The record is a 101-nucleotide RNA from Peribacillus faecalis, which matches "Purine riboswitch aptamer" in Rfam. Lineage of the source: Bacteria > Bacillati > Bacillota > Caryophanales > Peribacillus. Rfam describes the family as follows. Riboswitches are metabolite binding domains within certain messenger RNAs that serve as precision sensors for their corresponding targets. Allosteric rearrangement of mRNA structure is mediated by ligand binding, and this results in modulation of gene expression. A class of riboswitches that selectively recognises guanine and becomes saturated at concentrations as low as 5 nM. In Bacillus subtilis, this mRNA motif is located on at least five separate transcriptional units that together encode 17 genes that are mostly involved in purine transport and purine nucleotide biosynthesis. A search with the family's covariance model found it, with a score of 73 bits.
RNA sequence: UCUAUAUUAGUAAAACAAACUCGUAUAAUCUUGGUAAUAUGGUCCAAAAGUUUCUACAAACUACCGUAAAUAGUUCGGCUACGAGAAUAGAUAAGUACAGA
Numbered sequence: 001u002c003u004a005u006a007u008u009a010g011u012a013a014a015a016c017a018a019a020c021u022c023g024u025a026u027a028a029u030c031u032u033g034g035u036a037a038u039a040u041g042g043u044c045c046a047a048a049a050g051u052u053u054c055u056a057c058a059a060a061c062u063a064c065c066g067u068a069a070a071u072a073g074u075u076c077g078g079c080u081a082c083g084a085g086a087a088u089a090g091a092u093a094a095g096u097a098c099a100g101a
Base pairs, nucleotide, nucleotide: 020085021084022083023082024081025080029049031047032046033045034044057077059075060074061073062072063071